[Rfam]
RNA sequence: CAAAUAAAAGAUGAACAAGCGGUGAUAAAUGAUCAUGCAGCCGGGUCUUCGAGUCUGAAGACAGCAGAAUAUAGCACGGAGUGCGUACCUGUGAGACAGUA
Numbered sequence: 001c002a003a004a005u006a007a008a009a010g011a012u013g014a015a016c017a018a019g020c021g022g023u024g025a026u027a028a029a030u031g032a033u034c035a036u037g038c039a040g041c042c043g044g045g046u047c048u049u050c051g052a053g054u055c056u057g058a059a060g061a062c063a064g065c066a067g068a069a070u071a072u073a074g075c076a077c078g079g080a081g082u083g084c085g086u087a088c089c090u091g092u093g094a095g096a097c098a099g100u101a
Stems, first nucleotide, its partner, number of pairs: 010100001012098002016095001019041002022036005045062007064092004
RNA: NiCo (Nickel/Cobalt) riboswitch aptamer